[Rfam]
RNA sequence: GUCUAGCGAACAGACGUAAAAAUGGGAAACGCCUCCUAAAUAUAUUGUACAAACUUGCAAUGCUGGAAUUCCCCACCUGUGGUGCAGGCAGGUGUGGAGUUUCAGGUGCAAGGGA
Numbered sequence: 001g002u003c004u005a006g007c008g009a010a011c012a013g014a015c016g017u018a019a020a021a022a023u024g025g026g027a028a029a030c031g032c033c034u035c036c037u038a039a040a041u042a043u044a045u046u047g048u049a050c051a052a053a054c055u056u057g058c059a060a061u062g063c064u065g066g067a068a069u070u071c072c073c074c075a076c077c078u079g080u081g082g083u084g085c086a087g088g089c090a091g092g093u094g095u096g097g098a099g100u101u102u103c104a105g106g107u108g109c110a111a112g113g114g115a
Stems, first nucleotide, its partner, number of pairs: 006017003021046004026041001054112006063105010074094007
Rfam assigns this 115-nucleotide sequence from Methanosarcina mazei to the family "Archaeal Small RNA 41". Gene Ontology terms of the family: sRNA-mediated gene silencing and mRNA 5'-UTR binding. For this family Rfam cites "sRNA41 affects ribosome binding sites within polycistronic mRNAs in Methanosarcina mazei Go1" (Buddeweg et al., Mol Microbiol, 2018). It is one of the family's seed sequences.